[Rfam]
RNA: PyrR binding site
Organism: Siminovitchia fortis
RNA sequence: AAUACCUUUAAACCAGUCCCGUGAGGCUGACAAGGUGCGCUACGCAUGAGAAACUUUUCGCGCGUCAAUUUUGCUGUGGAAAUGUAGCCAAGCACCUUGCCUUUGAGGUAAGGUGCUUUUCAUUU
Numbered sequence: 001a002a003u004a005c006c007u008u009u010a011a012a013c014c015a016g017u018c019c020c021g022u023g024a025g026g027c028u029g030a031c032a033a034g035g036u037g038c039g040c041u042a043c044g045c046a047u048g049a050g051a052a053a054c055u056u057u058u059c060g061c062g063c064g065u066c067a068a069u070u071u072u073g074c075u076g077u078g079g080a081a082a083u084g085u086a087g088c089c090a091a092g093c094a095c096c097u098u099g100c101c102u103u104u105g106a107g108g109u110a111a112g113g114u115g116c117u118u119u120u121c122a123u124u125u
Stems, first nucleotide, its partner, number of pairs: 003037006014029005053085002056082004061078004066073002090118012